[Rfam]
The family of this 76-nucleotide sequence from Aidingimonas halophila is "Fluoride riboswitch aptamer (crcB RNA motif)". NCBI's taxonomy places the organism under Bacteria, Pseudomonadati, Gammaproteobacteria, Oceanospirillales, Aidingimonas. Its family is annotated with response to fluoride and positive regulation of gene expression in the Gene Ontology. The base pairs follow the family's consensus structure, which is taken from published work.
RNA sequence: ACAGCCUCAGGAGAUGGCAUACCUCCUGGCCUCGUGCCAAACCAUCACGUUCGUGAUUGAUGAUGCCUGUGCAGUG
Numbered sequence: 001a002c003a004g005c006c007u008c009a010g011g012a013g014a015u016g017g018c019a020u021a022c023c024u025c026c027u028g029g030c031c032u033c034g035u036g037c038c039a040a041a042c043c044a045u046c047a048c049g050u051u052c053g054u055g056a057u058u059g060a061u062g063a064u065g066c067c068u069g070u071g072c073a074g075u076g
Base pairs, nucleotide, nucleotide: 010026011025012024013023016067017066018065019064020063044057045056046055047054